[Rfam]
RNA sequence: GUUUAAUGAUGAUCUCCAUGCGUGUCAACUGAUCCCAGGUUUCCACCCAUUACCUGGCCACUUAAUGGUGUUUUAUCAUGAGUUGGUACCAGUUUUGGAGGAUCCUAGGGGAGUGAUCUUAACCCUACAGAUUCUGAAAAU
Number, nucleotide and partner (000 for none) at each position: 001g141002u140003u139004u138005a000006a000007u000008g000009a000010u000011g000012a000013u000014c000015u000016c000017c000018a000019u000020g000021c000022g000023u000024g000025u000026c000027a000028a000029c000030u000031g000032a000033u000034c000035c000036c000037a000038g000039g000040u000041u000042u102043c101044c100045a000046c098047c097048c000049a095050u000051u000052a000053c000054c000055u000056g000057g000058c000059c000060a000061c000062u000063u000064a000065a000066u000067g000068g000069u000070g000071u000072u000073u000074u000075a000076u000077c000078a000079u000080g000081a000082g000083u000084u000085g000086g000087u000088a000089c000090c000091a000092g000093u000094u000095u049096u000097g047098g046099a000100g044101g043102a042103u000104c000105c000106u000107a000108g000109g000110g000111g000112a000113g000114u000115g000116a000117u000118c000119u000120u000121a000122a000123c000124c000125c000126u000127a000128c000129a000130g000131a000132u000133u000134c000135u000136g000137a000138a004139a003140a002141u001

Small nucleolar RNA SNORD10: a 141-nucleotide RNA sequence from Polypterus senegalus. On this family, see Huttenhofer et al., EMBO J 2001: "RNomics: an experimental approach that identifies 201 candidates for novel, small, non-messenger RNAs in mouse".